The family of this 88-nucleotide RNA from Actinoplanes auranticolor is "Glycine riboswitch aptamer". The match comes from Rfam's covariance-model search (70 bits). This family represents the bacterial glycine riboswitch.

RNA sequence: GUACACCGCGCGGGAGAGACCACCUCGGUGGCGCCGAAGGGGCAAAUCCUCCCCGGAACCUCUCAGGCAAAAGGACCGCGUAGGUAGG
Numbered sequence: 001g002u003a004c005a006c007c008g009c010g011c012g013g014g015a016g017a018g019a020c021c022a023c024c025u026c027g028g029u030g031g032c033g034c035c036g037a038a039g040g041g042g043c044a045a046a047u048c049c050u051c052c053c054c055g056g057a058a059c060c061u062c063u064c065a066g067g068c069a070a071a072a073g074g075a076c077c078g079c080g081u082a083g084g085u086a087g088g
Base pairs, nucleotide, nucleotide: 006083008081009080010079011078012077013076020031021030022029023028033068034067035066036064037063040062041061042060047055